[Rfam]
RNA sequence: CUCUAUCUCCGUAAAGGACUUAGGGCAAAGGAG
Numbered sequence: 001c002u003c004u005a006u007c008u009c010c011g012u013a014a015a016g017g018a019c020u021u022a023g024g025g026c027a028a029a030g031g032a033g
Stems, first nucleotide, its partner, number of pairs: 001025005008018003
RNA: L31-Firmicutes ribosomal protein leader
Organism: Companilactobacillus ginsenosidimutans